[Rfam]
RNA sequence: UGGCUGUAGCCAAAUUGAAUAAUUGGGAAGUUUACUGGCCGGCCGUUGUGAGAUUUUUCUCUGUCAACGGAUCUGCUUACCGAGUUUCUUACAUUU
Numbered sequence: 001u002g003g004c005u006g007u008a009g010c011c012a013a014a015u016u017g018a019a020u021a022a023u024u025g026g027g028a029a030g031u032u033u034a035c036u037g038g039c040c041g042g043c044c045g046u047u048g049u050g051a052g053a054u055u056u057u058u059c060u061c062u063g064u065c066a067a068c069g070g071a072u073c074u075g076c077u078u079a080c081c082g083a084g085u086u087u088c089u090u091a092c093a094u095u096u
Stems, first nucleotide, its partner, number of pairs: 025090008037077003041073002044070001045068004
Notes:
The family of this 96-nucleotide sequence from Prunus armeniaca is "Small nucleolar RNA snoR109". Lineage of the source: Eukaryota > Streptophyta > Spermatophyta > Pentapetalae > Prunus. Gene Ontology terms of the family: nucleolus and RNA processing. It scores 79 bits against the family's covariance model. The family's consensus secondary structure was predicted with WAR.